[Rfam]
RNA sequence: GCCGCUGACGCGGGGUGCCCGGAGGUCCGGGCUGAGAUCACACCCGUCGAACCUGAUCUAGUUCGCACUAGCGAAGGGACGUCACACCGGUGAACG
Numbered sequence: 001g002c003c004g005c006u007g008a009c010g011c012g013g014g015g016u017g018c019c020c021g022g023a024g025g026u027c028c029g030g031g032c033u034g035a036g037a038u039c040a041c042a043c044c045c046g047u048c049g050a051a052c053c054u055g056a057u058c059u060a061g062u063u064c065g066c067a068c069u070a071g072c073g074a075a076g077g078g079a080c081g082u083c084a085c086a087c088c089g090g091u092g093a094a095c096g
Base pairs, nucleotide, nucleotide: 006084007083008082009081010080011046012045013044014043016040017032018031019030020029021028052077053076054075058071059070060069061068
RNA: TPP riboswitch aptamer (THI element)